Rfam assigns this 85-nucleotide RNA from Vigna radiata to the family "Small nucleolar RNA R44/J54/Z268 family". The family has 29 seed sequences and 1,168 matches in Rfam 15.1. It is annotated as a C/D-box small nucleolar RNA. A search with the family's covariance model found it, with a score of 55 bits.

RNA sequence: UUUGCAGGUGACGAUAACUUAGACAGGGACAUCAGUAAUUAUGCUAAGGAUGGUGAUUUGUUUUUGGGACUCUAAAUGAUGCGUA
Number, nucleotide and partner (000 for none) at each position: 001u000002u000003u083004g082005c081006a080007g000008g000009u000010g000011a000012c000013g000014a000015u000016a000017a000018c000019u000020u000021a000022g000023a000024c000025a000026g000027g000028g000029a000030c000031a000032u000033c000034a000035g000036u000037a000038a000039u000040u000041a000042u000043g000044c000045u000046a000047a000048g000049g000050a000051u000052g000053g000054u000055g000056a000057u000058u000059u000060g000061u000062u000063u000064u000065u000066g000067g000068g000069a000070c000071u000072c000073u000074a000075a000076a000077u000078g000079a000080u006081g005082c004083g003084u000085a000